A member of the RNA family "ZMP/ZTP riboswitch aptamer (pfl RNA motif)" from Streptomyces filamentosus, 91 nucleotides long.
For this family Rfam cites "Recognition of the bacterial alarmone ZMP through long-distance association of two RNA subdomains" (Jones and Ferre-D'Amare, Nat Struct Mol Biol, 2015).
[Rfam]
RNA sequence: GACACGCGCGGCGACUGGCGUACGGGGAACCGACCCCGGGGGAGCCGCGCGCGCUCCACCACACGAGGUGCCGCUCGCCUGGGCAUCACGG
Number, nucleotide and partner (000 for none) at each position: 001g000002a000003c053004a000005c051006g050007c049008g048009c047010g046011g045012c044013g000014a000015c041016u040017g079018g078019c077020g076021u000022a000023c000024g037025g036026g035027g034028a000029a000030c000031c000032g000033a000034c027035c026036c025037c024038g000039g000040g016041g015042g000043a000044g012045c011046c010047g009048c008049g007050c006051g005052c000053g003054c000055u000056c000057c000058a000059c000060c000061a000062c000063a000064c000065g000066a000067g000068g086069u085070g084071c083072c082073g000074c000075u000076c020077g019078c018079c017080u000081g000082g072083g071084c070085a069086u068087c000088a000089c000090g000091g000